[Rfam]
RNA: Iron response element I
RNA sequence: CAGGUUCUCGCUUCAACAGUGAUUGAACGGAACUA
Number, nucleotide and partner (000 for none) at each position: 001c000002a000003g034004g033005u032006u031007c030008u029009c000010g028011c000012u027013u026014c025015a024016a023017c021018a000019g000020u000021g017022a000023u016024u015025g014026a013027a012028c010029g008030g007031a006032a005033c004034u003035a000